[Rfam]
Source information
A member of the RNA family "SAM riboswitch aptamer (S box leader)" from Telmatospirillum siberiense, 105 nucleotides long.
RNA sequence: CCAUCAUCAAGACCAGCCGAGGGAAAGGCCCGUUGACGCUGGGGCAGCCUACGACCCGUGUCGCAAGGUGCCAAUUCCUGCGGCGUUUGGGCCGACAGAUGAUGG
Numbered sequence: 001c002c003a004u005c006a007u008c009a010a011g012a013c014c015a016g017c018c019g020a021g022g023g024a025a026a027g028g029c030c031c032g033u034u035g036a037c038g039c040u041g042g043g044g045c046a047g048c049c050u051a052c053g054a055c056c057c058g059u060g061u062c063g064c065a066a067g068g069u070g071c072c073a074a075u076u077c078c079u080g081c082g083g084c085g086u087u088u089g090g091g092c093c094g095a096c097a098g099a100u101g102a103u104g105g
Stems, first nucleotide, its partner, number of pairs: 001105008013042005021031003026079003043072004048068002050065001052063002076097001081094004